[Rfam]
RNA sequence: AACGGAUCCGGUCCCGCCGGAUGGCUACCCCGGGCGCCGAUCCCCCGGGAAACC
Numbered sequence: 001a002a003c004g005g006a007u008c009c010g011g012u013c014c015c016g017c018c019g020g021a022u023g024g025c026u027a028c029c030c031c032g033g034g035c036g037c038c039g040a041u042c043c044c045c046c047g048g049g050a051a052a053c054c
Stems, first nucleotide, its partner, number of pairs: 006022006029049006